Small nucleolar RNA SNORA61: a 137-nucleotide RNA sequence from Pteropus alecto. ACA61 is a member of the H/ACA class of snoRNA that guide the sites of modification of uridines to pseudouridines. The match comes from Rfam's covariance-model search (127 bits). It is annotated as an H/ACA-box small nucleolar RNA.
RNA sequence: ACCCUCCAGUUCCCUUUCCCAUCAGAUCUGAACACCGGUCUUGGUGGUCGUAAAAGGAGGAAAAGUAAUACUGAAGUUGGCCUCACAGUGUUUAUAGUCUGCCGUAUAUAUAGCACGUGGGCUCGUUUCACACAGAG
Numbered sequence: 001a002c003c004c005u006c007c008a009g010u011u012c013c014c015u016u017u018c019c020c021a022u023c024a025g026a027u028c029u030g031a032a033c034a035c036c037g038g039u040c041u042u043g044g045u046g047g048u049c050g051u052a053a054a055a056g057g058a059g060g061a062a063a064a065g066u067a068a069u070a071c072u073g074a075a076g077u078u079g080g081c082c083u084c085a086c087a088g089u090g091u092u093u094a095u096a097g098u099c100u101g102c103c104g105u106a107u108a109u110a111u112a113g114c115a116c117g118u119g120g121g122c123u124c125g126u127u128u129c130a131c132a133c134a135g136a137g
Base pairs, nucleotide, nucleotide: 003060004059005058006057007056019047020046021045022044023043025040026039027038028037077125079123080122081121082120083119093115095113